[Rfam]
RNA sequence: GGAAAACGAGGACGGGGCUGGGGACACGAGCCACCCCGAGUCCUCCUCGGGCAAAUAGGCUCG
Number, nucleotide and partner (000 for none) at each position: 001g000002g000003a000004a000005a000006a000007c000008g000009a000010g000011g000012a000013c000014g044015g043016g042017g041018c040019u039020g000021g037022g036023g035024a000025c000026a000027c000028g062029a061030g060031c059032c058033a000034c000035c023036c022037c021038g000039a019040g018041u017042c016043c015044u014045c000046c000047u000048c000049g000050g000051g000052c000053a000054a000055a000056u000057a000058g032059g031060c030061u029062c028063g000

The family of this 63-nucleotide RNA from Propithecus coquereli is "Ma3 gene ribosomal frameshift signal". The family has 12 seed sequences and 565 matches in Rfam 15.1. The match comes from Rfam's covariance-model search (55 bits). By type it is a frameshift element. The source organism's lineage runs through Eukaryota, Bilateria, Deuterostomia, Euteleostomi and Propithecus. The base pairs follow the family's consensus structure, which is taken from published work.